Overview
This 120-nucleotide RNA from Chrysodeixis includens belongs to the Rfam family "U11 spliceosomal RNA". It scores 52 bits against the family's covariance model.
RNA sequence: GACUGUUUGCCGCUGAUGGCACUCGCACUUGUGCGUGGGGUAUGUCUGUCAAAAGACAUGCCCAACAGACAAUUUUUGUAAUGGAGAGGCAGUUGGCUACCCUAAAGUACCGGCGCCUUU
Numbered sequence: 001g002a003c004u005g006u007u008u009g010c011c012g013c014u015g016a017u018g019g020c021a022c023u024c025g026c027a028c029u030u031g032u033g034c035g036u037g038g039g040g041u042a043u044g045u046c047u048g049u050c051a052a053a054a055g056a057c058a059u060g061c062c063c064a065a066c067a068g069a070c071a072a073u074u075u076u077u078g079u080a081a082u083g084g085a086g087a088g089g090c091a092g093u094u095g096g097c098u099a100c101c102c103u104a105a106a107g108u109a110c111c112g113g114c115g116c117c118u119u120u
Stems, first nucleotide, its partner, number of pairs: 003068005008021005022037001024035004038063007087118004092114005098109003

The base pairs follow the family's consensus structure, which is taken from published work. It is annotated as a spliceosomal small nuclear RNA.